[Rfam]
RNA sequence: CCGUGGGGACCUGGUCCGGGGAAAUGUAGUGGAUGUGGGUGUCGACGCCGCCUGCGGUGAGGAUCUUGCCCUCUCCGGCGAUCAUCUCGGUGCUGGCCCCGAUCACGAUGUCCACACCGUCGGCGAUCUGGGGGUUGCCGGCCUUGCCGAUCUUGAAGAUGUGGCCGUCUUUGAGCGCCACGUCGGCCUUGUAGAUUCCCGUGUAGUCGAGGACCACGACGUUCGAAAUGACGGUGUCCGGGACGUCCUCAUCCCGGGUCGCUUGGCCGUUCUGCCCCAUGCCGUCGCGG
Dot-bracket structure: (((....((..(..(..(((((........((.((.(.((....)).)))))....(((.......)))..)))))((..(...(....(((((((...((.(((((.........).)).))))..)))...).))).)...)..))......)..).....(.((...((((((((.......(.(.((........((......)).....)).).)..(((..(.((..(.(.........).))).)..))))).))))))......)).)........)).)))
Numbered sequence: 001c002c003g004u005g006g007g008g009a010c011c012u013g014g015u016c017c018g019g020g021g022a023a024a025u026g027u028a029g030u031g032g033a034u035g036u037g038g039g040u041g042u043c044g045a046c047g048c049c050g051c052c053u054g055c056g057g058u059g060a061g062g063a064u065c066u067u068g069c070c071c072u073c074u075c076c077g078g079c080g081a082u083c084a085u086c087u088c089g090g091u092g093c094u095g096g097c098c099c100c101g102a103u104c105a106c107g108a109u110g111u112c113c114a115c116a117c118c119g120u121c122g123g124c125g126a127u128c129u130g131g132g133g134g135u136u137g138c139c140g141g142c143c144u145u146g147c148c149g150a151u152c153u154u155g156a157a158g159a160u161g162u163g164g165c166c167g168u169c170u171u172u173g174a175g176c177g178c179c180a181c182g183u184c185g186g187c188c189u190u191g192u193a194g195a196u197u198c199c200c201g202u203g204u205a206g207u208c209g210a211g212g213a214c215c216a217c218g219a220c221g222u223u224c225g226a227a228a229u230g231a232c233g234g235u236g237u238c239c240g241g242g243a244c245g246u247c248c249u250c251a252u253c254c255c256g257g258g259u260c261g262c263u264u265g266g267c268c269g270u271u272c273u274g275c276c277c278c279a280u281g282c283c284g285u286c287g288c289g290g
Stems, first nucleotide, its partner, number of pairs: 001290003008286002012158001015155001018076005031052002034050002037048001039046002057069003077148002081144001085140001090138003093134001094130003100125002103123002105120002107117001164276001166274002171266006177259002186220001188218001190216002200209002223257003228252001230250002234248001236246001

5' ureB small RNA: a 290-nucleotide RNA sequence from Arthrobacter sp. SRS-W-1-2016. On this family, see Wen et al., J Bacteriol 2013: "Helicobacter pylori 5'ureB-sRNA, a cis-encoded antisense small RNA, negatively regulates ureAB expression by transcription termination". Taxonomically the source falls in Arthrobacter (Bacteria, Bacillati, Actinomycetota, Micrococcaceae). The family's consensus secondary structure was predicted with mfold.